Annotation:
A member of the RNA family "Enterobacterial sRNA STnc180" from Cronobacter sakazakii, 217 nucleotides long. The match comes from Rfam's covariance-model search (87 bits). By type it is a small RNA.
RNA sequence: GAAAAUUACACACAGCAAUCUUUACAUUUCUGGCAAGCGCCAGAGCGAUCAAUGGUUUUAAUUAUUGGUGUAACAGGUAUGAAUAAUCAGCUCACGCUCAAAUACUGGUCAUGGAUUGGCGCAUUUACCGUUUCCUCCUUGUUCUGGUGUCAGCUUGUCUGGAUGCUUGCUCACUGAUUCCUCUGCGCCUGGCUCCCCGCCAGGCGUUUUGUUUUCU
Dot-bracket structure: .........((((....((..........(((((....))))).................)).....))))......................................(..(....((.(.........).))....).......)...((.((.....)).))...................(((((((((.....)))))))))..........